[Rfam]
RNA sequence: CUACUUUGAUGAACAUUCAACGCUGUCGGUGAGUUUGGUAUUUGAAGGCAAACCAUCGAUCGUUGACUGUACAUUACAGCAG
Numbered sequence: 001c002u003a004c005u006u007u008g009a010u011g012a013a014c015a016u017u018c019a020a021c022g023c024u025g026u027c028g029g030u031g032a033g034u035u036u037g038g039u040a041u042u043u044g045a046a047g048g049c050a051a052a053c054c055a056u057c058g059a060u061c062g063u064u065g066a067c068u069g070u071a072c073a074u075u076a077c078a079g080c081a082g
Base pairs, nucleotide, nucleotide: 002082004079005078007076008075014069015068017066018065019064020063021062022061025060026059027058028057029056030055031054033053034052035051036050
A member of the RNA family "mir-181 microRNA precursor family" from Hymenochirus boettgeri, 82 nucleotides long. On this family, see Lagos-Quintana et al., RNA 2003: "New microRNAs from mouse and human". The family has 157 seed sequences and 3,490 matches in Rfam 15.1. Taxonomically the source falls in Hymenochirus (Eukaryota, Opisthokonta, Teleostomi, Pipoidea).